[Rfam]
RNA sequence: UGCUCAUGCCCUCCUUGGGCGUUUCCUCCCUAGACUUCGACCGCAUCGCACCCGUGAUGCGGUCUUUUUUUAUCUGGAA
Numbered sequence: 001u002g003c004u005c006a007u008g009c010c011c012u013c014c015u016u017g018g019g020c021g022u023u024u025c026c027u028c029c030c031u032a033g034a035c036u037u038c039g040a041c042c043g044c045a046u047c048g049c050a051c052c053c054g055u056g057a058u059g060c061g062g063u064c065u066u067u068u069u070u071u072a073u074c075u076g077g078a079a
Base pairs, nucleotide, nucleotide: 008020009019010018011017039064040063041062042061043060044059045058046057047056
The family of this 79-nucleotide sequence from Tianweitania populi is "Makes More Granules Regulator RNA (mmgR)". For this family Rfam cites "Prediction of Sinorhizobium meliloti sRNA genes and experimental detection in strain 2011" (Valverde et al., BMC Genomics, 2008). Rfam 15.1 lists 1,791 matches to the family in 918 species. It scores 66 bits against the family's covariance model.